[Rfam]
RNA sequence: GGAAUAUAAGAACCCGUCUCUUAAUUUUUAACUAAAAAAAUUAAGAACCGGAUUCUUAACUUUUUUUUAGUUAAAAGUUAAGAGACAAGUUAUUAUAUUUC
Numbered sequence: 001g002g003a004a005u006a007u008a009a010g011a012a013c014c015c016g017u018c019u020c021u022u023a024a025u026u027u028u029u030a031a032c033u034a035a036a037a038a039a040a041u042u043a044a045g046a047a048c049c050g051g052a053u054u055c056u057u058a059a060c061u062u063u064u065u066u067u068u069a070g071u072u073a074a075a076a077g078u079u080a081a082g083a084g085a086c087a088a089g090u091u092a093u094u095a096u097a098u099u100u101c
Stems, first nucleotide, its partner, number of pairs: 001101009011091003016086024041059007
Rfam assigns this 101-nucleotide RNA sequence from Brassica rapa to the family "MIR9563 microRNA precursor family".
Rfam links the family to the GO terms RISC complex and miRNA-mediated post-transcriptional gene silencing.
The sequence is in the family's curated seed alignment.
Rfam 15.1 lists 5,832 matches to the family in 9 species.
Taxonomically the source falls in Brassica (Eukaryota, Streptophyta, Euphyllophyta, Magnoliopsida).